A member of the RNA family "Ascomycota telomerase RNA" from Lachnellula willkommii, 71 nucleotides of a longer RNA. The literature on the family includes a 2013 paper in Nucleic Acids Res by Qi et al., "The common ancestral core of vertebrate and fungal telomerase RNAs". The family is grouped with related families in Rfam's "Telomerase clan". It scores 102 bits against the family's covariance model. Taxonomically the source falls in Lachnellula (Eukaryota, Fungi, Dikarya, Pezizomycotina).
RNA sequence: UUCCCAACAGUUCUCUGAUUUACAUUCUCCGCAAGGAAGUAUCGUGGUCAGAACUUAACCCUAAGUAAUUG
Numbered sequence: 001u002u003c004c005c006a007a008c009a010g011u012u013c014u015c016u017g018a019u020u021u022a023c024a025u026u027c028u029c030c031g032c033a034a035g036g037a038a039g040u041a042u043c044g045u046g047g048u049c050a051g052a053a054c055u056u057a058a059c060c061c062u063a064a065g066u067a068a069u070u071g
Stems, first nucleotide, its partner, number of pairs: 009055003015051006